The family of this 239-nucleotide sequence from Lophium mytilinum is "Small nucleolar RNA snR191".
It is annotated as an H/ACA-box small nucleolar RNA.
Pairs were carried over by alignment from the consensus structure, which was predicted with WAR.
RNA sequence: UCCCAUCGUUAAGUCAAGGCUCCAACCUGCACUCGUUGCAAACAUCUAUGGAUGGAAUCUGUUACAACUUUGGGAGAUUGAUCUUGGCCCGCCGCUCAGAGCCGUCAUGGUAAUGGGCUGAUUUGGUCACCGUUUUGGUGGUCGGUCGAAAGGGUUGAGAAUGAUUCGUUCAGAGUUGAGAUUCGUCUCUGCCCUCGAGCAGCUUCAUGGCGAUUCUCUUAGUAACGUUUCAUACAUUU
Numbered sequence: 001u002c003c004c005a006u007c008g009u010u011a012a013g014u015c016a017a018g019g020c021u022c023c024a025a026c027c028u029g030c031a032c033u034c035g036u037u038g039c040a041a042a043c044a045u046c047u048a049u050g051g052a053u054g055g056a057a058u059c060u061g062u063u064a065c066a067a068c069u070u071u072g073g074g075a076g077a078u079u080g081a082u083c084u085u086g087g088c089c090c091g092c093c094g095c096u097c098a099g100a101g102c103c104g105u106c107a108u109g110g111u112a113a114u115g116g117g118c119u120g121a122u123u124u125g126g127u128c129a130c131c132g133u134u135u136u137g138g139u140g141g142u143c144g145g146u147c148g149a150a151a152g153g154g155u156u157g158a159g160a161a162u163g164a165u166u167c168g169u170u171c172a173g174a175g176u177u178g179a180g181a182u183u184c185g186u187c188u189c190u191g192c193c194c195u196c197g198a199g200c201a202g203c204u205u206c207a208u209g210g211c212g213a214u215u216c217u218c219u220u221a222g223u224a225a226c227g228u229u230u231c232a233u234a235c236a237u238u239u
Stems, first nucleotide, its partner, number of pairs: 003073002005069001017060003021056004026051001028040004084159002086156004092120001094118005101111003125143008161233004167227003178218004184212004189202004
Dot-bracket structure: ..(((...........(((.((((.(.((((.....))))..........).)))).)))........)..))..........((((((..(.(((((..(((.....)))..))))).)....((((((((...)))))))).........)))).)).((((..(((........((((..((((.((((......))))......))))..))))......)))..))))......